epsC RNA: a 113-nucleotide RNA from Litchfieldia salsa. By type it is a cis-regulatory element. A search with the family's covariance model found it, with a score of 102 bits. Pairs were carried over by alignment from the consensus structure, which is taken from published work. Taxonomically the source falls in Litchfieldia (Bacteria, Bacillati, Bacilli, Bacillaceae).
[Rfam]
RNA sequence: UGGUGAUGCCUCCUCUCCUUUAUCAGCGGAGGCACUCGGUCAUGCUGUGGGUUGAAAGACCUUAGACGCGAUUUGUCGUCAAGAGUGUGGUGUGAGGGUGGGUUAGAUGCCCA
Number, nucleotide and partner (000 for none) at each position: 001u000002g018003g017004u000005g000006a000007u034008g033009c032010c031011u030012c029013c028014u000015c000016u000017c003018c002019u000020u000021u000022a000023u000024c000025a000026g000027c000028g013029g012030a011031g010032g009033c008034a007035c096036u095037c094038g093039g091040u090041c089042a088043u087044g086045c085046u084047g000048u000049g062050g061051g060052u059053u058054g000055a000056a000057a000058g053059a052060c051061c050062u049063u000064a000065g080066a079067c078068g077069c000070g000071a000072u000073u000074u000075g000076u000077c068078g067079u066080c065081a000082a000083g000084a046085g045086u044087g043088u042089g041090g040091u039092g000093u038094g037095a036096g035097g000098g000099u113100g112101g111102g110103u109104u000105a000106g000107a000108u000109g103110c102111c101112c100113a099